The record is a 106-nucleotide sequence from Sporosarcina sp. JAI121, which matches "TPP riboswitch aptamer (THI element)" in Rfam. Rfam links the family to the GO term thiamine pyrophosphate binding. The organism belongs to Sporosarcina, within Bacteria. The base pairs follow the family's consensus structure, which is taken from published work.
RNA sequence: AACAACCACUAGGGGAGCCUUUUUAAGGCUGAGACGUGCAUGGAUGCGCGGACCCUUGGAACCUGAUCCGGAUUAUACCGGCGUAGGAAAGUGGGUGCGCCCUUUU
Numbered sequence: 001a002a003c004a005a006c007c008a009c010u011a012g013g014g015g016a017g018c019c020u021u022u023u024u025a026a027g028g029c030u031g032a033g034a035c036g037u038g039c040a041u042g043g044a045u046g047c048g049c050g051g052a053c054c055c056u057u058g059g060a061a062c063c064u065g066a067u068c069c070g071g072a073u074u075a076u077a078c079c080g081g082c083g084u085a086g087g088a089a090a091g092u093g094g095g096u097g098c099g100c101c102c103u104u105u106u
Stems, first nucleotide, its partner, number of pairs: 006094005011056004017029005036049005062087004068081004